[Rfam]
RNA sequence: UGCGGGCAGGAGUGAUGAAUCAAUUAGAUGUGCGAAGCUACCUUGUGAGCUUAACAUUUGAGGCAUACAUUUUGUCUGACCUGCCAGUC
Numbered sequence: 001u002g003c004g005g006g007c008a009g010g011a012g013u014g015a016u017g018a019a020u021c022a023a024u025u026a027g028a029u030g031u032g033c034g035a036a037g038c039u040a041c042c043u044u045g046u047g048a049g050c051u052u053a054a055c056a057u058u059u060g061a062g063g064c065a066u067a068c069a070u071u072u073u074g075u076c077u078g079a080c081c082u083g084c085c086a087g088u089c
Base pairs, nucleotide, nucleotide: 002088003087005085006084007083008082009081010080
Dot-bracket structure: .((.((((((.....................................................................)))))).)).